[Rfam]
RNA sequence: UCAAUGUCACUCCAAACCACGACGUAAGCUCCUGAAAAUAGUGUAGGUAAACGUUUGCCUCUACUCAGCCUGCACGCAACUUUUGGGGAUGCGAUUCGCCGGGAAAACGACACGGAACGUCAGGAGGGGUCUAUGGCCGGUACGCGAAUAAAUUUAGCGUGGAAUUUUGUCUUAUCUUGAUGAAAAGGGGAAGCGUUAAAACGCAUAUCACCCCAAAUCAAAGAAGAUUUUUGCCCAUAAAUGUGUAAAAAUGCGCAAGCUCACUUUUUGUGGGGUAAUAAGAAUGGAGAGAAAUUGAUGAGUGCAGAUCUGAAGUUUUCCCUGAUGACCACCGUUGUUGUGCUGGGCCUGAUUGUUGCCGGUGCGCUGACCGCUGCGUUAAAUUGAUUU
Numbered sequence: 001u002c003a004a005u006g007u008c009a010c011u012c013c014a015a016a017c018c019a020c021g022a023c024g025u026a027a028g029c030u031c032c033u034g035a036a037a038a039u040a041g042u043g044u045a046g047g048u049a050a051a052c053g054u055u056u057g058c059c060u061c062u063a064c065u066c067a068g069c070c071u072g073c074a075c076g077c078a079a080c081u082u083u084u085g086g087g088g089a090u091g092c093g094a095u096u097c098g099c100c101g102g103g104a105a106a107a108c109g110a111c112a113c114g115g116a117a118c119g120u121c122a123g124g125a126g127g128g129g130u131c132u133a134u135g136g137c138c139g140g141u142a143c144g145c146g147a148a149u150a151a152a153u154u155u156a157g158c159g160u161g162g163a164a165u166u167u168u169g170u171c172u173u174a175u176c177u178u179g180a181u182g183a184a185a186a187g188g189g190g191a192a193g194c195g196u197u198a199a200a201a202c203g204c205a206u207a208u209c210a211c212c213c214c215a216a217a218u219c220a221a222a223g224a225a226g227a228u229u230u231u232u233g234c235c236c237a238u239a240a241a242u243g244u245g246u247a248a249a250a251a252u253g254c255g256c257a258a259g260c261u262c263a264c265u266u267u268u269u270g271u272g273g274g275g276u277a278a279u280a281a282g283a284a285u286g287g288a289g290a291g292a293a294a295u296u297g298a299u300g301a302g303u304g305c306a307g308a309u310c311u312g313a314a315g316u317u318u319u320c321c322c323u324g325a326u327g328a329c330c331a332c333c334g335u336u337g338u339u340g341u342g343c344u345g346g347g348c349c350u351g352a353u354u355g356u357u358g359c360c361g362g363u364g365c366g367c368u369g370a371c372c373g374c375u376g377c378g379u380u381a382a383a384u385u386g387a388u389u390u
Stems, first nucleotide, its partner, number of pairs: 016130003020126001023028001030125006041095002045060006076092003080088001099115003142196004149163001152160002170188003175183002265284001267282001269280003
The family of this 390-nucleotide RNA from Pseudescherichia vulneris is "Enterobacterial sRNA STnc550". The family's consensus secondary structure was predicted with CMfinder. A search with the family's covariance model found it, with a score of 329 bits.